RNA sequence: UGUCAGUUUCAGGGAAGGUGCAAUUCCUUACUGGCGGUAAUCCGCACCCCGGGAUUCAUAACGGGAGCAUGCGGAAAGCCCGCGAGCCGCCCUAAGGCGGCCGAUCCGGUGCGAUUCCGGAGCCAACGGUUACAGUCCGGAUGGAAGAAACGAGGA
Numbered sequence: 001u002g003u004c005a006g007u008u009u010c011a012g013g014g015a016a017g018g019u020g021c022a023a024u025u026c027c028u029u030a031c032u033g034g035c036g037g038u039a040a041u042c043c044g045c046a047c048c049c050c051g052g053g054a055u056u057c058a059u060a061a062c063g064g065g066a067g068c069a070u071g072c073g074g075a076a077a078g079c080c081c082g083c084g085a086g087c088c089g090c091c092c093u094a095a096g097g098c099g100g101c102c103g104a105u106c107c108g109g110u111g112c113g114a115u116u117c118c119g120g121a122g123c124c125a126a127c128g129g130u131u132a133c134a135g136u137c138c139g140g141a142u143g144g145a146a147g148a149a150a151c152g153a154g155g156a
Stems, first nucleotide, its partner, number of pairs: 003154001006151005016028003030136002032125002034083004086101003105121005127139003
The record is a 156-nucleotide RNA from Bifidobacterium callitrichos, which matches "FMN riboswitch aptamer (RFN element)" in Rfam. The source organism's lineage runs through Bacteria, Actinomycetota, Bifidobacteriales, Bifidobacteriaceae and Bifidobacterium. It scores 93 bits against the family's covariance model.